The record is a 407-nucleotide RNA from Alicyclobacillus hesperidum, which matches "Bacterial RNase P class A" in Rfam. The base pairs follow the family's consensus structure, which is taken from published work. The source organism's lineage runs through Bacteria, Bacilli, Caryophanales, Alicyclobacillaceae and Alicyclobacillus. About the family: Ribonuclease P (RNase P) is a ubiquitous endoribonuclease, found in archaea, bacteria and eukarya as well as chloroplasts and mitochondria. Rfam classes the family as a ribozyme.

RNA sequence: GAAGUAAGCUGGGCAAUCGCCGGUGCAUGGCCGAAAGGCAGCACGGGAGGAAAGUCCGAGCUCCGCAGGGCAGGGUGCCGGAUAACGUCCGGCGAGAGCGAUCUCAGGGAAAGUGCCACAGAAAUGUAGACCGCCGAUGGCCUGUUUCAGGCUCAGGCAAGGAUGCAACGGUGCGGUAAGAGCGCACCAGCAGUCCGGAGACGGAUUGGCUAGGUAAACCCCACCUGGAGCAAGACCGGAUAGGAGUGCUGAUGUGGUGGCCCGCCACGCACUCGGGUUGGUCGCUUGAGCCGACUGGCAACAGUCGGCCUAGAUAGAUGAUUGCUGCUCCAUACGUGCGAGGCCGCUCUGCGCGUGCCGUUUGUAGCACAGGAGUACAGAACUCGGCUUACAGGCUUACUUCUUCG
Numbered sequence: 001g002a003a004g005u006a007a008g009c010u011g012g013g014c015a016a017u018c019g020c021c022g023g024u025g026c027a028u029g030g031c032c033g034a035a036a037g038g039c040a041g042c043a044c045g046g047g048a049g050g051a052a053a054g055u056c057c058g059a060g061c062u063c064c065g066c067a068g069g070g071c072a073g074g075g076u077g078c079c080g081g082a083u084a085a086c087g088u089c090c091g092g093c094g095a096g097a098g099c100g101a102u103c104u105c106a107g108g109g110a111a112a113g114u115g116c117c118a119c120a121g122a123a124a125u126g127u128a129g130a131c132c133g134c135c136g137a138u139g140g141c142c143u144g145u146u147u148c149a150g151g152c153u154c155a156g157g158c159a160a161g162g163a164u165g166c167a168a169c170g171g172u173g174c175g176g177u178a179a180g181a182g183c184g185c186a187c188c189a190g191c192a193g194u195c196c197g198g199a200g201a202c203g204g205a206u207u208g209g210c211u212a213g214g215u216a217a218a219c220c221c222c223a224c225c226u227g228g229a230g231c232a233a234g235a236c237c238g239g240a241u242a243g244g245a246g247u248g249c250u251g252a253u254g255u256g257g258u259g260g261c262c263c264g265c266c267a268c269g270c271a272c273u274c275g276g277g278u279u280g281g282u283c284g285c286u287u288g289a290g291c292c293g294a295c296u297g298g299c300a301a302c303a304g305u306c307g308g309c310c311u312a313g314a315u316a317g318a319u320g321a322u323u324g325c326u327g328c329u330c331c332a333u334a335c336g337u338g339c340g341a342g343g344c345c346g347c348u349c350u351g352c353g354c355g356u357g358c359c360g361u362u363u364g365u366a367g368c369a370c371a372g373g374a375g376u377a378c379a380g381a382a383c384u385c386g387g388c389u390u391a392c393a394g395g396c397u398u399a400c401u402u403c404u405u406c407g
Stems, first nucleotide, its partner, number of pairs: 001403010011392001012326007020047002023044004052390003056387005061230004068263004073226005078092005093107001094105004108221002113219002115215003131162002133158003138155003142151001170188006190210001191208007234283004244274006254268005290309008